Overview
The family of this 107-nucleotide sequence from Gillisia limnaea is "6S-Flavo RNA". Rfam classes the family as a small RNA. Pairs were carried over by alignment from the consensus structure, which is taken from published work. The match comes from Rfam's covariance-model search (97 bits).
[Rfam]
RNA sequence: ACUCAACACGUAUUCUUUAAAAAGGGUGAGUUUUAGUUGUAAAAGCGUGCCGUCUUAGAGCGGAUACUUGAUCAGCUUGUUAGCCCUAUACUUAUUUUAAGGAGUUU
Numbered sequence: 001a002c003u004c005a006a007c008a009c010g011u012a013u014u015c016u017u018u019a020a021a022a023a024g025g026g027u028g029a030g031u032u033u034u035a036g037u038u039g040u041a042a043a044a045g046c047g048u049g050c051c052g053u054c055u056u057a058g059a060g061c062g063g064a065u066a067c068u069u070g071a072u073c074a075g076c077u078u079g080u081u082a083g084c085c086c087u088a089u090a091c092u093u094a095u096u097u098u099a100a101g102g103a104g105u106u107u
Stems, first nucleotide, its partner, number of pairs: 023087005035077004043069003050063004